[Rfam]
RNA sequence: CGUUGUGAACUGUGGGGACCAUCUCCCCCUGCAGAUCCGGCAGCGGUCUUAACCGCAAUCUUAAAAUCUUAUUACCCAAGAAGGAG
Dot-bracket structure: ..(((.((.((((((((.........)))))))).)))))..............................................
Numbered sequence: 001c002g003u004u005g006u007g008a009a010c011u012g013u014g015g016g017g018a019c020c021a022u023c024u025c026c027c028c029c030u031g032c033a034g035a036u037c038c039g040g041c042a043g044c045g046g047u048c049u050u051a052a053c054c055g056c057a058a059u060c061u062u063a064a065a066a067u068c069u070u071a072u073u074a075c076c077c078a079a080g081a082a083g084g085a086g
Stems, first nucleotide, its partner, number of pairs: 003040003007037002010034008